Rfam assigns this 148-nucleotide RNA from Paraflavitalea soli to the family "SAM riboswitch aptamer (S box leader)". The SAM riboswitch is found upstream of a number of genes which code for proteins involved in methionine or cysteine biosynthesis in Gram-positive bacteria.
RNA sequence: UGCUUAUCAAGAAAGGCUGAGGGAAAACGGGCCCGAUGACGCCUUGGCAACCCUUCUUUUGUUUCAUGCUGUAUAGACAUUGUGCAUGAUGCGGAGAAUGAAGGUGCCAAUUCCUGCUCUGCAUGUAAUGUGCAGAGAUAGAUAAGUC
Numbered sequence: 001u002g003c004u005u006a007u008c009a010a011g012a013a014a015g016g017c018u019g020a021g022g023g024a025a026a027a028c029g030g031g032c033c034c035g036a037u038g039a040c041g042c043c044u045u046g047g048c049a050a051c052c053c054u055u056c057u058u059u060u061g062u063u064u065c066a067u068g069c070u071g072u073a074u075a076g077a078c079a080u081u082g083u084g085c086a087u088g089a090u091g092c093g094g095a096g097a098a099u100g101a102a103g104g105u106g107c108c109a110a111u112u113c114c115u116g117c118u119c120u121g122c123a124u125g126u127a128a129u130g131u132g133c134a135g136a137g138a139u140a141g142a143u144a145a146g147u148c
Stems, first nucleotide, its partner, number of pairs: 002147007013045005021034003028116004046108004051104002053100001055098001112140001117137008